[Rfam]
RNA sequence: AUAGGAAUAACAGUGCAAUUCUCCUUAGGCAUGGUAAUGGAAGCUAUGCAGCAUGCAUAAAAUUCAACUGCAUAUGCCUCUUUCCGUUUGCCAAAGGAGAAUUGCCCUGCCAUUCAAUU
Dot-bracket structure: ....((((..(((.(((((.((((...((((.(.....................................................).))))...)))).))))).)))..))))....
Notes:
The record is a 119-nucleotide RNA from Ipomoea nil, which matches "mir-399 microRNA precursor family" in Rfam. The family's consensus secondary structure was predicted with PFOLD. A search with the family's covariance model found it, with a score of 58 bits. mir-399 was identified in both Arabidopsis thaliana and Oryza sativa computationally and was later experimentally verified. mir-399 is thought to target mRNAs coding for a phosphatase transporter. The mature sequence is excised from the 3' arm of the hairpin.